This 135-nucleotide RNA sequence from Megasphaera sp. UPII 135-E belongs to the Rfam family "FMN riboswitch aptamer (RFN element)". It scores 90 bits against the family's covariance model.
RNA sequence: AAUAGUCUUUGAGGCAAGGUGCGAAAGUUCGCUUUCAAUUCCUGACCGGCGGUAAUAGUCCGCAACCCUUUUUUUAGAGGUUGAGCCGAUGUAAUUUCGGUACCGACAGUAUAGUCUGGAUGGAAAAAGACCCGU
Numbered sequence: 001a002a003u004a005g006u007c008u009u010u011g012a013g014g015c016a017a018g019g020u021g022c023g024a025a026a027g028u029u030c031g032c033u034u035u036c037a038a039u040u041c042c043u044g045a046c047c048g049g050c051g052g053u054a055a056u057a058g059u060c061c062g063c064a065a066c067c068c069u070u071u072u073u074u075u076a077g078a079g080g081u082u083g084a085g086c087c088g089a090u091g092u093a094a095u096u097u098c099g100g101u102a103c104c105g106a107c108a109g110u111a112u113a114g115u116c117u118g119g120a121u122g123g124a125a126a127a128a129g130a131c132c133c134g135u
Base pairs, nucleotide, nucleotide: 005131006130007129008128009127010126017043018042019041045115046114047105048104049063050062051061052060058103059102067080068079085101086100087099088098089097107118108117109116
Taxonomically the source falls in Megasphaera (Bacteria, Bacillota, Veillonellales, Veillonellaceae).